[Rfam]
RNA: PreQ1 (pre queuosine) riboswitch aptamer
RNA sequence: AAUAAACUGGUUCGAAACCCUCCCAGUAUAAAAAACUAGGUUCUU
Numbered sequence: 001a002a003u004a005a006a007c008u009g010g011u012u013c014g015a016a017a018c019c020c021u022c023c024c025a026g027u028a029u030a031a032a033a034a035a036c037u038a039g040g041u042u043c044u045u
Stems, first nucleotide, its partner, number of pairs: 006027005016037001